[Rfam]
RNA: Small nucleolar RNA Z157/R69/R10
RNA sequence: AAUAUGGUGAUGAUACAAGAGUAUUGUGGACUAGAGUUUCAGAUCUGGGAUUCUUCUCCCAGAAGUUGAAGAUUAACCCUUGGCUGUCUGAGUAUU
Numbered sequence: 001a002a003u004a005u006g007g008u009g010a011u012g013a014u015a016c017a018a019g020a021g022u023a024u025u026g027u028g029g030a031c032u033a034g035a036g037u038u039u040c041a042g043a044u045c046u047g048g049g050a051u052u053c054u055u056c057u058c059c060c061a062g063a064a065g066u067u068g069a070a071g072a073u074u075a076a077c078c079c080u081u082g083g084c085u086g087u088c089u090g091a092g093u094a095u096u
Base pairs, nucleotide, nucleotide: 001096002095003094004093005092037071038070039069040068044064045062046061047060048059049058